A member of the RNA family "S10-Clostridia ribosomal protein leader" from Thermosinus carboxydivorans, 84 nucleotides long.

RNA sequence: CCCAAGCGAUGACGCGGAAGGUUGCCCGCGCUUGGCGGGGAAAUUUCCGCGGAGAAAUGUCCGUUCAACGAAACUGGGCGAUAA
Numbered sequence: 001c002c003c004a005a006g007c008g009a010u011g012a013c014g015c016g017g018a019a020g021g022u023u024g025c026c027c028g029c030g031c032u033u034g035g036c037g038g039g040g041a042a043a044u045u046u047c048c049g050c051g052g053a054g055a056a057a058u059g060u061c062c063g064u065u066c067a068a069c070g071a072a073a074c075u076g077g078g079c080g081a082u083a084a
Base pairs, nucleotide, nucleotide: 014050015049016048019046020045021044025039026038027037028036029035058083059082060081061080063079064078065077066076

NCBI's taxonomy places the organism under Bacteria, Bacillota, Sporomusaceae, Thermosinus, Thermosinus carboxydivorans. The literature on the family includes a 2020 paper in BMC Microbiol by Eckert and Weinberg, "Discovery of 20 novel ribosomal leader candidates in bacteria and archaea".